[Rfam]
RNA sequence: CCCCGUACUCACCCGUACGGGGACAUCUUCCGACUGCAACAAGGGGUCUGUCCGUG
Numbered sequence: 001c002c003c004c005g006u007a008c009u010c011a012c013c014c015g016u017a018c019g020g021g022g023a024c025a026u027c028u029u030c031c032g033a034c035u036g037c038a039a040c041a042a043g044g045g046g047u048c049u050g051u052c053c054g055u056g
Base pairs, nucleotide, nucleotide: 001022002021003020004019005018006017007016008015

Overview: This 56-nucleotide sequence from [Pantoea] beijingensis belongs to the Rfam family "ClpQY promoter". Taxonomically the source falls in Erwinia (Bacteria, Pseudomonadati, Gammaproteobacteria, Erwiniaceae). A reference for the family is Lien et al. (2009), "Regulation of clpQ(+)Y(+) (hslV(+)U(+)) gene expression in Escherichia coli", Open Microbiol J. Rfam classes the family as a cis-regulatory element. Gene Ontology term of the family: mRNA stabilization. The pairing is the family consensus, mapped onto this sequence.